[Rfam]
RNA sequence: UUCCUAUGAAAACUCUUAUUAUUUACUUCUCUGACUGAGAGCUGCUGAUGGAGCUGAGGAUUUAAAUGGAA
Numbered sequence: 001u002u003c004c005u006a007u008g009a010a011a012a013c014u015c016u017u018a019u020u021a022u023u024u025a026c027u028u029c030u031c032u033g034a035c036u037g038a039g040a041g042c043u044g045c046u047g048a049u050g051g052a053g054c055u056g057a058g059g060a061u062u063u064a065a066a067u068g069g070a071a
Stems, first nucleotide, its partner, number of pairs: 001071004
The family of this 71-nucleotide sequence from Castor canadensis is "Small nucleolar RNA SNORD66". The organism belongs to Castor, within Eukaryota. Rfam classes the family as a C/D-box small nucleolar RNA. The base pairs follow the family's consensus structure, which was predicted with RNAalifold. The family has 20 seed sequences and 1,346 matches in Rfam 15.1. The literature on the family includes a 2001 paper in EMBO J by Huttenhofer et al., "RNomics: an experimental approach that identifies 201 candidates for novel, small, non-messenger RNAs in mouse". It scores 32 bits against the family's covariance model. Rfam's curators write: snoRNA HBII-142 is part of the C/D family of snoRNAs. It is the human orthologue of the mouse MBII-142 snoRNA and is predicted to guide 2'O-ribose methylation of small 18S rRNA at residue C1272. Gene Ontology terms of the family: nucleolus and RNA processing.